[Rfam]
RNA sequence: GAGACACCCUUCUGGGGCAAGACUUGCUUCAGUGGGGCUUUGGUGCACAAUGAGUCUGCCCCCGAGUGUGUCUUU
Numbered sequence: 001g002a003g004a005c006a007c008c009c010u011u012c013u014g015g016g017g018c019a020a021g022a023c024u025u026g027c028u029u030c031a032g033u034g035g036g037g038c039u040u041u042g043g044u045g046c047a048c049a050a051u052g053a054g055u056c057u058g059c060c061c062c063c064g065a066g067u068g069u070g071u072c073u074u075u
Stems, first nucleotide, its partner, number of pairs: 001074007009066003014062006021056003029053003033049002036046001037044002
The record is a 75-nucleotide RNA sequence from Myotis lucifugus, which matches "mir-9229 microRNA precursor family" in Rfam. Taxonomically the source falls in Myotis (Eukaryota, Deuterostomia, Dipnotetrapodomorpha, Mammalia).